Betaproteobacteria toxic small RNA: a 67-nucleotide RNA from Cognatundibacterium rugosum. It scores 52 bits against the family's covariance model. NCBI's taxonomy places the organism under Bacteria, Pseudomonadati, Burkholderiales, Oxalobacteraceae, Cognatundibacterium. About the family: Overexpression in amino aid rich medium attenuates growth, suggesting role in repressing amino acid intake and metabolism.
RNA sequence: UGUCUCCUCCAACACCUCCUAAGGUUUGGAUUUAGCCCGCAAGCGUCUCGCUCGCGGGCUUUUUUUU
Dot-bracket structure: .......(((((.(((......))))))))...(((((((.............))))))).......
Numbered sequence: 001u002g003u004c005u006c007c008u009c010c011a012a013c014a015c016c017u018c019c020u021a022a023g024g025u026u027u028g029g030a031u032u033u034a035g036c037c038c039g040c041a042a043g044c045g046u047c048u049c050g051c052u053c054g055c056g057g058g059c060u061u062u063u064u065u066u067u
Stems, first nucleotide, its partner, number of pairs: 008030005014025003034060007